This 75-nucleotide RNA sequence from Crocodylus porosus belongs to the Rfam family "Mammalian CPEB3 ribozyme". Rfam describes the family as follows. The mammalian CPEB3 ribozyme is a self cleaving RNA located in the second intron of the CPEB3 gene which belongs to a family of genes regulating messenger RNA polyadenylation. This ribozyme is highly conserved and found only in mammals. The CPEB3 ribozyme is structurally and biochemically related to the human hepatitis delta virus (HDV) ribozyme and the HDV ribozyme is proposed to have arisen from the human transcriptome. There is currently only one other known self cleaving ribozyme in mammals, the CoTC motif. The organism belongs to Crocodylus, within Eukaryota. Pairs were carried over by alignment from the consensus structure, which is taken from published work.

[Rfam]
RNA sequence: CUGCAAGUUCAAAGCCAUAGCAGAAGCGCUCAUAGCAUGGCCUUGUCAGAGUCCAAUGAAUCUGCAAAUUCUCCU
Numbered sequence: 001c002u003g004c005a006a007g008u009u010c011a012a013a014g015c016c017a018u019a020g021c022a023g024a025a026g027c028g029c030u031c032a033u034a035g036c037a038u039g040g041c042c043u044u045g046u047c048a049g050a051g052u053c054c055a056a057u058g059a060a061u062c063u064g065c066a067a068a069u070u071c072u073c074c075u
Stems, first nucleotide, its partner, number of pairs: 011043001014041003019075002022072004026038001028036001047064004052059002